[Rfam]
RNA sequence: AAGACUAUACUUUCAGGGAUCAUUUCUAUAGUUCUUGACUAGGAAAUGUGUUUCGAAAGUGUUGUGUCUCUCUAACCACGAUGAUGAGUUUUGAUACUCUUUUCUGAGCAUGAAUCGGGUGUAGAAUAAUGAUUUACUUCAUAAGCUCUGCAUCAUUGAUGAAUGUUCCGUACUGUGAUUUUUACAGUACAGAGGAAAAGAGUAUGAACAGAGUGGU
Numbered sequence: 001a002a003g004a005c006u007a008u009a010c011u012u013u014c015a016g017g018g019a020u021c022a023u024u025u026c027u028a029u030a031g032u033u034c035u036u037g038a039c040u041a042g043g044a045a046a047u048g049u050g051u052u053u054c055g056a057a058a059g060u061g062u063u064g065u066g067u068c069u070c071u072c073u074a075a076c077c078a079c080g081a082u083g084a085u086g087a088g089u090u091u092u093g094a095u096a097c098u099c100u101u102u103u104c105u106g107a108g109c110a111u112g113a114a115u116c117g118g119g120u121g122u123a124g125a126a127u128a129a130u131g132a133u134u135u136a137c138u139u140c141a142u143a144a145g146c147u148c149u150g151c152a153u154c155a156u157u158g159a160u161g162a163a164u165g166u167u168c169c170g171u172a173c174u175g176u177g178a179u180u181u182u183u184a185c186a187g188u189a190c191a192g193a194g195g196a197a198a199a200g201a202g203u204a205u206g207a208a209c210a211g212a213g214u215g216g217u
Base pairs, nucleotide, nucleotide: 002040003039005037009032010031011030015027016026017025018024048065049064050063054061075217076216077215078214079213094205095204096203097202098201099200100199101198102197103196104195105194108166109165110164118154119153120152121151124148125147127145129142130141131140132139170190171189172188173187174186175185176184177183
RNA: Small nucleolar RNA U3
Organism: Labeo rohita